RNA sequence: UGAGUUGGUGGCUAGGGUUCCGGCGCUUCAAAAAGCGUGCUGGUCCGAGAGCUGCCGCCAGUGGGGAGAAAUCCCACUGGAUGCACGGCGGGACAAAAGCCCGGGAGAC
Numbered sequence: 001u002g003a004g005u006u007g008g009u010g011g012c013u014a015g016g017g018u019u020c021c022g023g024c025g026c027u028u029c030a031a032a033a034a035g036c037g038u039g040c041u042g043g044u045c046c047g048a049g050a051g052c053u054g055c056c057g058c059c060a061g062u063g064g065g066g067a068g069a070a071a072u073c074c075c076a077c078u079g080g081a082u083g084c085a086c087g088g089c090g091g092g093a094c095a096a097a098a099g100c101c102c103g104g105g106a107g108a109c
Stems, first nucleotide, its partner, number of pairs: 007056006015046002020043002022040001023038006057082001058080007084104001086107001090102003